[Rfam]
RNA sequence: GGACACAGCGAAGAUCUGCUACGAAGCAAGAAACGGAGAGCUUGCAAAAAUUUUGAUUUAUCCUCGGAUUUAUUAAGUUUUUGUCGAGUGUCUCACCAUGUUGGCUUCGGGGAAAGUCCCCAGACACUUGGUAGAAAGUACCAGAUGUAAAUACUGAAGUCUUUCAUCUUGUUCUAUGGCCAAGAUACCGCAUGGUGGAGUCGAAUAGAUGCAAGAUGUUUCGUCAAAGCACAGUCAUGCAGAUGUCCAAGUUUCAUGGCUUGGUUCAACUCAAUGGGGCUCAUUCUUGCUGUGUU
Numbered sequence: 001g002g003a004c005a006c007a008g009c010g011a012a013g014a015u016c017u018g019c020u021a022c023g024a025a026g027c028a029a030g031a032a033a034c035g036g037a038g039a040g041c042u043u044g045c046a047a048a049a050a051u052u053u054u055g056a057u058u059u060a061u062c063c064u065c066g067g068a069u070u071u072a073u074u075a076a077g078u079u080u081u082u083g084u085c086g087a088g089u090g091u092c093u094c095a096c097c098a099u100g101u102u103g104g105c106u107u108c109g110g111g112g113a114a115a116g117u118c119c120c121c122a123g124a125c126a127c128u129u130g131g132u133a134g135a136a137a138g139u140a141c142c143a144g145a146u147g148u149a150a151a152u153a154c155u156g157a158a159g160u161c162u163u164u165c166a167u168c169u170u171g172u173u174c175u176a177u178g179g180c181c182a183a184g185a186u187a188c189c190g191c192a193u194g195g196u197g198g199a200g201u202c203g204a205a206u207a208g209a210u211g212c213a214a215g216a217u218g219u220u221u222c223g224u225c226a227a228a229g230c231a232c233a234g235u236c237a238u239g240c241a242g243a244u245g246u247c248c249a250a251g252u253u254u255c256a257u258g259g260c261u262u263g264g265u266u267c268a269a270c271u272c273a274a275u276g277g278g279g280c281u282c283a284u285u286c287u288u289g290c291u292g293u294g295u296u
Stems, first nucleotide, its partner, number of pairs: 002296010014244006022109006036094004042088001115281002118279004130142004144155001147154002158220003167216006173209004177203004187196003247264006
RNA: RNase MRP
Organism: Paramuricea clavata